[Rfam]
RNA sequence: GUAAGUCCAGGCAUUUGGGUGCGGUCAUCCACAGGUAAGACCGUCCAAAGGACGGCGCCGCACCCCUCCCGCAAGGGAGUGUGCCUGGGAGGAGGA
Numbered sequence: 001g002u003a004a005g006u007c008c009a010g011g012c013a014u015u016u017g018g019g020u021g022c023g024g025u026c027a028u029c030c031a032c033a034g035g036u037a038a039g040a041c042c043g044u045c046c047a048a049a050g051g052a053c054g055g056c057g058c059c060g061c062a063c064c065c066c067u068c069c070c071g072c073a074a075g076g077g078a079g080u081g082u083g084c085c086u087g088g089g090a091g092g093a094g095g096a
Base pairs, nucleotide, nucleotide: 006089007088008087009086010085011084012083013082014081017065018064019063020062021061022060023059024058025057039056041055042054043053044052045051066079067078068077069076070075